[Rfam]
RNA sequence: GGAUGCAUCACUGGGCAUAUCUCCUUUGGAAGGAAACCAUUAAUAGUUACUUUCCUGCCAAAGGAGAUUUGCCCCGCAAUUCUCCC
Numbered sequence: 001g002g003a004u005g006c007a008u009c010a011c012u013g014g015g016c017a018u019a020u021c022u023c024c025u026u027u028g029g030a031a032g033g034a035a036a037c038c039a040u041u042a043a044u045a046g047u048u049a050c051u052u053u054c055c056u057g058c059c060a061a062a063g064g065a066g067a068u069u070u071g072c073c074c075c076g077c078a079a080u081u082c083u084c085c086c
Stems, first nucleotide, its partner, number of pairs: 005082001007080002011076001013074005019068001021066004027060003031056005

Description:
Shown here is an 86-nucleotide RNA from Ipomoea nil, a member of the family "mir-399 microRNA precursor family". Rfam links the family to the GO terms miRNA-mediated post-transcriptional gene silencing and RISC complex. About the family: mir-399 was identified in both Arabidopsis thaliana and Oryza sativa computationally and was later experimentally verified. mir-399 is thought to target mRNAs coding for a phosphatase transporter. The mature sequence is excised from the 3' arm of the hairpin.